[Rfam]
This 102-nucleotide sequence from Psychrobacillus soli belongs to the Rfam family "Purine riboswitch aptamer". The source organism's lineage runs through Bacteria, Bacillati, Caryophanales, Bacillaceae and Psychrobacillus. The match comes from Rfam's covariance-model search (87 bits).

RNA sequence: AAAAACAAUGUCGAAUUAUGUCGUAUAAUGUUGGGAAUAUGGCCCAAAAGUUUCUACCAAGCCACCGUAAAGGGCUUGACUACGAGUUAAUUGUUAUAUGGA
Numbered sequence: 001a002a003a004a005a006c007a008a009u010g011u012c013g014a015a016u017u018a019u020g021u022c023g024u025a026u027a028a029u030g031u032u033g034g035g036a037a038u039a040u041g042g043c044c045c046a047a048a049a050g051u052u053u054c055u056a057c058c059a060a061g062c063c064a065c066c067g068u069a070a071a072g073g074g075c076u077u078g079a080c081u082a083c084g085a086g087u088u089a090a091u092u093g094u095u096a097u098a099u100g101g102a
Base pairs, nucleotide, nucleotide: 018088021085022084023083024082025081029049031047032046033045034044035043058078059077060076061075062074063073